A member of the RNA family "Rhizobiales sRNA Atu_C8" from Tianweitania populi, 122 nucleotides long.
For this family Rfam cites "Deep sequencing uncovers numerous small RNAs on all four replicons of the plant pathogen Agrobacterium tumefaciens" (Wilms et al., RNA Biol, 2012).
Pairs were carried over by alignment from the consensus structure, which was predicted with CMfinder.
The organism belongs to Tianweitania, within Bacteria.
The match comes from Rfam's covariance-model search (106 bits).
The family's RNA type in Rfam is small RNA.
[Rfam]
RNA sequence: CAUGAAGACAGCACUCAUUCUCGUAGUAGGACGGCGCGUGGGCAAGGCGGUGUAACCGCCAGGCGAAAGCACCCCAUGCGCAUCACGAAGGCUCCCUAGGGGGCCUUUUUUAUUGCCUCAAU
Numbered sequence: 001c002a003u004g005a006a007g008a009c010a011g012c013a014c015u016c017a018u019u020c021u022c023g024u025a026g027u028a029g030g031a032c033g034g035c036g037c038g039u040g041g042g043c044a045a046g047g048c049g050g051u052g053u054a055a056c057c058g059c060c061a062g063g064c065g066a067a068a069g070c071a072c073c074c075c076a077u078g079c080g081c082a083u084c085a086c087g088a089a090g091g092c093u094c095c096c097u098a099g100g101g102g103g104c105c106u107u108u109u110u111u112a113u114u115g116c117c118u119c120a121a122u
Base pairs, nucleotide, nucleotide: 009026029118030117032115034081035080036079037078038077039076040075041074042073046060047059048058049057050056063070064069087107089106090105091104092103093102094101095100
Dot-bracket structure: ........(................)..((.(.(((((((((...(((((.....)))))..((....))..))))))))).....(.(((((((....)))))))).......).))....